[Rfam]
RNA sequence: UGACGGGGGUCCGCACAAGCGGUGGAGCAUGUGGUUUAAUUCGAUGAUACGCGAGGAACCUUACCUGGGCUAGAAUGCUGAGUGACCGUGGGUGAAAGCUCACUUUAUAGCAAUAUACACUUAGUAAGGUGCUGCAUGGCUGUCGUCAGCUCGUGCCGUGAGGUGUUGGGUUAAGUCCCGCAACGAGCGCAACCCCUAUCACUAGUUGCCAUCAGGUAAUGCUGGGAACUCUAGUGAAACUGCCGCCGUAAGGCGUGAGGAAGGAGGGGAUGAUGUCAAGUCAUCAUGGCCUUUAUGCCCAGGGCUACACACGUGCUACAAUGGGGAGGACAAAGGGUUGCUACCUGGUAACAGGAUGCUAAUCUCAAAAACCUUCUCUCAGUUCGAAUUGAGGUCUGCAACUCGACCUCAUGAAGCUGGAAUCGCUAGUAAUCGUAUAUCAGCAAUGAUACGGUGAAUACGUUCCCGGACCUUGUACACACCGCCCGUCAAGCCAUGGAAGCUGGGUGUACCUAAAGUCGGUAACCGCAAGGAGCCGCCUAGGGUAAAACUAGUAACUGGGGCUAAGUCGUAACAAGG
Numbered sequence: 001u002g003a004c005g006g007g008g009g010u011c012c013g014c015a016c017a018a019g020c021g022g023u024g025g026a027g028c029a030u031g032u033g034g035u036u037u038a039a040u041u042c043g044a045u046g047a048u049a050c051g052c053g054a055g056g057a058a059c060c061u062u063a064c065c066u067g068g069g070c071u072a073g074a075a076u077g078c079u080g081a082g083u084g085a086c087c088g089u090g091g092g093u094g095a096a097a098g099c100u101c102a103c104u105u106u107a108u109a110g111c112a113a114u115a116u117a118c119a120c121u122u123a124g125u126a127a128g129g130u131g132c133u134g135c136a137u138g139g140c141u142g143u144c145g146u147c148a149g150c151u152c153g154u155g156c157c158g159u160g161a162g163g164u165g166u167u168g169g170g171u172u173a174a175g176u177c178c179c180g181c182a183a184c185g186a187g188c189g190c191a192a193c194c195c196c197u198a199u200c201a202c203u204a205g206u207u208g209c210c211a212u213c214a215g216g217u218a219a220u221g222c223u224g225g226g227a228a229c230u231c232u233a234g235u236g237a238a239a240c241u242g243c244c245g246c247c248g249u250a251a252g253g254c255g256u257g258a259g260g261a262a263g264g265a266g267g268g269g270a271u272g273a274u275g276u277c278a279a280g281u282c283a284u285c286a287u288g289g290c291c292u293u294u295a296u297g298c299c300c301a302g303g304g305c306u307a308c309a310c311a312c313g314u315g316c317u318a319c320a321a322u323g324g325g326g327a328g329g330a331c332a333a334a335g336g337g338u339u340g341c342u343a344c345c346u347g348g349u350a351a352c353a354g355g356a357u358g359c360u361a362a363u364c365u366c367a368a369a370a371a372c373c374u375u376c377u378c379u380c381a382g383u384u385c386g387a388a389u390u391g392a393g394g395u396c397u398g399c400a401a402c403u404c405g406a407c408c409u410c411a412u413g414a415a416g417c418u419g420g421a422a423u424c425g426c427u428a429g430u431a432a433u434c435g436u437a438u439a440u441c442a443g444c445a446a447u448g449a450u451a452c453g454g455u456g457a458a459u460a461c462g463u464u465c466c467c468g469g470a471c472c473u474u475g476u477a478c479a480c481a482c483c484g485c486c487c488g489u490c491a492a493g494c495c496a497u498g499g500a501a502g503c504u505g506g507g508u509g510u511a512c513c514u515a516a517a518g519u520c521g522g523u524a525a526c527c528g529c530a531a532g533g534a535g536c537c538g539c540c541u542a543g544g545g546u547a548a549a550a551c552u553a554g555u556a557a558c559u560g561g562g563g564c565u566a567a568g569u570c571g572u573a574a575c576a577a578g579g
Stems, first nucleotide, its partner, number of pairs: 001479002003476003007473007015463002019426005024319001026317008034308002040055004064303007076126003080122005088103006106117004128292002131290004137286002139281003142277001144275002149188006155164003167180004194269004199237007209226002213224003240260002243257001244255004323378007335366003340359002345354003385416001390411007432455007482578001484575001487571002492565004497560003502555005508549001510547004518540001520538004526533002
The family of this 579-nucleotide part of an RNA from Hanamia caeni is "Bacterial small subunit ribosomal RNA".
It scores 1532 bits against the family's covariance model.
A reference for the family is Yusupov et al. (2001), "Crystal structure of the ribosome at 5.5 A resolution", Science.